[Rfam]
RNA sequence: GAUCAUUGACAUACUUGAUACGAACAAUGGCAACAAGCAUUACUCGGCAGGUGAAAUGCCUGCACGUGAUUAACCCAUUGUCGUUAGCCUGCGACCUAAUGUGCGCAGGGCGAAGCCGUGGCAGGCACGGAACACCCGAGGCUCGAAAGCCUCCUGACGACAC
Numbered sequence: 001g002a003u004c005a006u007u008g009a010c011a012u013a014c015u016u017g018a019u020a021c022g023a024a025c026a027a028u029g030g031c032a033a034c035a036a037g038c039a040u041u042a043c044u045c046g047g048c049a050g051g052u053g054a055a056a057u058g059c060c061u062g063c064a065c066g067u068g069a070u071u072a073a074c075c076c077a078u079u080g081u082c083g084u085u086a087g088c089c090u091g092c093g094a095c096c097u098a099a100u101g102u103g104c105g106c107a108g109g110g111c112g113a114a115g116c117c118g119u120g121g122c123a124g125g126c127a128c129g130g131a132a133c134a135c136c137c138g139a140g141g142c143u144c145g146a147a148a149g150c151c152u153c154c155u156g157a158c159g160a161c162a163c
Stems, first nucleotide, its partner, number of pairs: 047063005080161008088109006116130005138153004
RNA: DUF2693 RNA